[Rfam]
RNA sequence: GGCGUAAAGCGUCCGUAGGUGGCCCGGCAAGUCUGCUGUCAAAGACCACAGCUCAACUGUGGAAAGGCAGUGGAAACUGCAAGGCUAGAGUGCGGUAGGGGUAGAGGGAAUUCCCAGUGUAGCGGUGAAAUGCGUAGAGAUUGGGAAGAACACCGGUGGCGAAAGCGCUCUACUGGGCCGCAACUGACACUGAUGGACGAAAGCUAGGGGAGCGAAUGGGAUUAGAUACCCCAGUAGUCCUAGCUGUAAACGAUGGAAACUAGGUGUAGCACGUAUCGACCCGUGCUGUAUCGGAGCUAACGCGUUAAGUUUCCCGCCUGGGGAGUACGCACGCAAGUGUGAAACUCAAAGGAAU
Number, nucleotide and partner (000 for none) at each position: 001g318002g317003c316004g000005u000006a000007a000008a000009g315010c000011g198012u197013c196014c195015g000016u192017a000018g191019g190020u189021g000022g085023c084024c083025c000026g000027g080028c079029a000030a078031g077032u074033c073034u072035g071036c070037u069038g068039u067040c066041a000042a000043a000044g000045a000046c062047c061048a060049c059050a058051g057052c000053u000054c000055a000056a000057c051058u050059g049060u048061g047062g046063a000064a000065a000066g040067g039068c038069a037070g036071u035072g034073g033074a032075a000076a000077c031078u030079g028080c027081a000082a000083g024084g023085c022086u000087a000088g000089a185090g184091u183092g181093c180094g179095g178096u177097a000098g000099g000100g174101g173102u172103a171104g170105a169106g168107g151108g000109a000110a000111u147112u146113c145114c144115c143116a142117g141118u140119g000120u000121a000122g133123c132124g131125g000126u000127g000128a000129a000130a000131u124132g123133c122134g000135u000136a000137g000138a000139g000140a118141u117142u116143g115144g114145g113146a112147a111148g000149a000150a000151c107152a000153c000154c000155g000156g000157u000158g000159g166160c165161g000162a000163a000164a000165g160166c159167g000168c106169u105170c104171u103172a102173c101174u100175g000176g000177g096178c095179c094180g093181c092182a000183a091184c090185u089186g000187a000188c000189a020190c019191u018192g016193a000194u000195g014196g013197a012198c011199g000200a000201a000202a000203g244204c243205u242206a241207g240208g239209g000210g000211a000212g238213c237214g000215a000216a000217u233218g232219g231220g230221a000222u000223u000224a000225g000226a000227u000228a000229c000230c220231c219232c218233a217234g000235u000236a000237g213238u212239c208240c207241u206242a205243g204244c203245u000246g000247u000248a000249a000250a000251c000252g000253a000254u000255g314256g313257a312258a311259a310260c309261u000262a000263g292264g291265u290266g289267u288268a287269g286270c285271a284272c283273g282274u000275a000276u000277c000278g000279a000280c000281c000282c273283g272284u271285g270286c269287u268288g267289u266290a265291u264292c263293g000294g000295a000296g303297c302298u000299a000300a000301c000302g297303c296304g000305u000306u000307a000308a000309g260310u259311u258312u257313c256314c255315c009316g003317c002318c001319u000320g347321g346322g345323g000324a000325g000326u000327a000328c000329g340330c339331a338332c337333g000334c000335a000336a000337g332338u331339g330340u329341g000342a000343a000344a000345c322346u321347c320348a000349a000350a000351g000352g000353a000354a000355u000
RNA: Bacterial small subunit ribosomal RNA, nucleotides 512 to 866